[Rfam]
RNA sequence: GGUAUUGUUUACCCCAUUUUUGUGGCCCCGGAAACCCAAAAAUAUCUUGACAGCUAAGGAAUGGCUGCCUGUAAACAAAUU
Numbered sequence: 001g002g003u004a005u006u007g008u009u010u011a012c013c014c015c016a017u018u019u020u021u022g023u024g025g026c027c028c029c030g031g032a033a034a035c036c037c038a039a040a041a042a043u044a045u046c047u048u049g050a051c052a053g054c055u056a057a058g059g060a061a062u063g064g065c066u067g068c069c070u071g072u073a074a075a076c077a078a079a080u081u
Stems, first nucleotide, its partner, number of pairs: 006077007016043007024036002
Record summary
Rfam assigns this 81-nucleotide sequence from Lactococcus termiticola to the family "Ribosomal protein L13 leader". Rfam classes the family as a cis-regulatory leader. Gene Ontology term of the family: regulation of gene expression. Lineage of the source: Bacteria > Bacillati > Lactobacillales > Streptococcaceae > Lactococcus. From the family's description: This family is a putative r-protein leader autoregulatory structure found in B. subtilis and other low-GC Gram-positive bacteria. It is located in the 5' untranslated regions of mRNAs encoding the L13-S9 (rplM-rpsI) ribosomal protein operon.